[Rfam]
RNA: Plant signal recognition particle RNA
RNA sequence: ACCGGGCUUGGUAGCGCUUGCCUAUAACUCAAGCGAGGGUAUCAAAGGUGGUUGGACUGUGUCAUGACCUGGCUCGAUUGGUCAUGUUAGAGCUCAAACCGGCUUGCCCAUUCCAAGUUGUGAGUUGAACCAUGUGGCUCGAGCGAAGGCUUGGCUCACUUGGCUCCUAGAGAAGAGGGCACUGCAUUAGGCUGGCUUCACAGAGCUGUGAAAACCUCUCGCUUAUGACAGUGGAAGGAUAACAAGUCGCGGCUCUACUUGGCUAUAUAAUCCGCUAGGCUCUCUCAAAUGAACAUCCAUCUUU
Numbered sequence: 001a002c003c004g005g006g007c008u009u010g011g012u013a014g015c016g017c018u019u020g021c022c023u024a025u026a027a028c029u030c031a032a033g034c035g036a037g038g039g040u041a042u043c044a045a046a047g048g049u050g051g052u053u054g055g056a057c058u059g060u061g062u063c064a065u066g067a068c069c070u071g072g073c074u075c076g077a078u079u080g081g082u083c084a085u086g087u088u089a090g091a092g093c094u095c096a097a098a099c100c101g102g103c104u105u106g107c108c109c110a111u112u113c114c115a116a117g118u119u120g121u122g123a124g125u126u127g128a129a130c131c132a133u134g135u136g137g138c139u140c141g142a143g144c145g146a147a148g149g150c151u152u153g154g155c156u157c158a159c160u161u162g163g164c165u166c167c168u169a170g171a172g173a174a175g176a177g178g179g180c181a182c183u184g185c186a187u188u189a190g191g192c193u194g195g196c197u198u199c200a201c202a203g204a205g206c207u208g209u210g211a212a213a214a215c216c217u218c219u220c221g222c223u224u225a226u227g228a229c230a231g232u233g234g235a236a237g238g239a240u241a242a243c244a245a246g247u248c249g250c251g252g253c254u255c256u257a258c259u260u261g262g263c264u265a266u267a268u269a270a271u272c273c274g275c276u277a278g279g280c281u282c283u284c285u286c287a288a289a290u291g292a293a294c295a296u297c298c299a300u301c302u303u304u
Stems, first nucleotide, its partner, number of pairs: 001040003004023004010017001028037003044304008053295002057291001060287002066280001069278005076272004080264005086258002089256004094252002100249007108238002111236005117229009127166002130163003134159004139154006167172001174219005183212001185210003192203003